Record summary: Metazoan signal recognition particle RNA: a 290-nucleotide RNA from Trypanosoma rangeli. Its family is annotated with SRP-dependent cotranslational protein targeting to membrane, signal sequence recognition and signal recognition particle, endoplasmic reticulum targeting in the Gene Ontology. Clan: SRP clan. Rfam describes the family as follows. The signal recognition particle (SRP) is a universally conserved ribonucleoprotein. It scores 93 bits against the family's covariance model. The organism belongs to Herpetosoma, within Eukaryota. The family's RNA type in Rfam is non-coding RNA gene.
RNA sequence: GCCGGAGCAUCGCAGGCUCUGUAACCUCCCUGUGAGGGGCUGGGGUGUCCGAGCGUCGGAGGAGUGGAUCAGCGAGAGUUCUGCUGCGUAGACUUGGUGUUCUGCUUGGUUGUGCGUCGGUUUCAUUCGAGGGUCCCACUGUAGAGAGGGUACCCUCAAGCCGUUAAAGCCAAGGAAACGGGCCAGGCCGGGGACGGAGCAGCCCACCUUGCGCGCGUUACCGUUGCAGAAGCACACCGAGGAGCAAGUCAGGUCUUGAGCCCCACGCCAUCGUCGCGAGGCGAUCCUUU
Numbered sequence: 001g002c003c004g005g006a007g008c009a010u011c012g013c014a015g016g017c018u019c020u021g022u023a024a025c026c027u028c029c030c031u032g033u034g035a036g037g038g039g040c041u042g043g044g045g046u047g048u049c050c051g052a053g054c055g056u057c058g059g060a061g062g063a064g065u066g067g068a069u070c071a072g073c074g075a076g077a078g079u080u081c082u083g084c085u086g087c088g089u090a091g092a093c094u095u096g097g098u099g100u101u102c103u104g105c106u107u108g109g110u111u112g113u114g115c116g117u118c119g120g121u122u123u124c125a126u127u128c129g130a131g132g133g134u135c136c137c138a139c140u141g142u143a144g145a146g147a148g149g150g151u152a153c154c155c156u157c158a159a160g161c162c163g164u165u166a167a168a169g170c171c172a173a174g175g176a177a178a179c180g181g182g183c184c185a186g187g188c189c190g191g192g193g194a195c196g197g198a199g200c201a202g203c204c205c206a207c208c209u210u211g212c213g214c215g216c217g218u219u220a221c222c223g224u225u226g227c228a229g230a231a232g233c234a235c236a237c238c239g240a241g242g243a244g245c246a247a248g249u250c251a252g253g254u255c256u257u258g259a260g261c262c263c264c265a266c267g268c269c270a271u272c273g274u275c276g277c278g279a280g281g282c283g284a285u286c287c288u289u290u
Stems, first nucleotide, its partner, number of pairs: 001040003004020005010014001025037003042288005049281002053277003057273003061269002064266004072262001073258004080253004085246003089242001093241008101230005108222003112218006118163006129157006135150003139146002164169001170211001172209001180205004188197003